Rfam assigns this 102-nucleotide RNA from Desulfitobacterium hafniense to the family "Purine riboswitch aptamer". Taxonomically the source falls in Desulfitobacterium hafniense (Bacteria, Bacillati, Bacillota, Clostridia). From the family's description: Riboswitches are metabolite binding domains within certain messenger RNAs that serve as precision sensors for their corresponding targets. The base pairs follow the family's consensus structure, which is taken from published work. Rfam's curators put it in the seed alignment. Rfam 15.1 lists 4,097 matches to the family in 1,411 species.
RNA sequence: AAAAAAUUUAAAUAGGGCGUUCAUAUAAUCGCGGAGAUAGGGUCCGCAAGUUUCUACCGGGCUGCCGUAAAUGGCCUGACUAUGAGCGAAACUGUGCCCAGG
Numbered sequence: 001a002a003a004a005a006a007u008u009u010a011a012a013u014a015g016g017g018c019g020u021u022c023a024u025a026u027a028a029u030c031g032c033g034g035a036g037a038u039a040g041g042g043u044c045c046g047c048a049a050g051u052u053u054c055u056a057c058c059g060g061g062c063u064g065c066c067g068u069a070a071a072u073g074g075c076c077u078g079a080c081u082a083u084g085a086g087c088g089a090a091a092c093u094g095u096g097c098c099c100a101g102g
Base pairs, nucleotide, nucleotide: 018088019087020086021085022084023083024082025081029049031047032046033045034044035043058078059077060076061075062074063073064072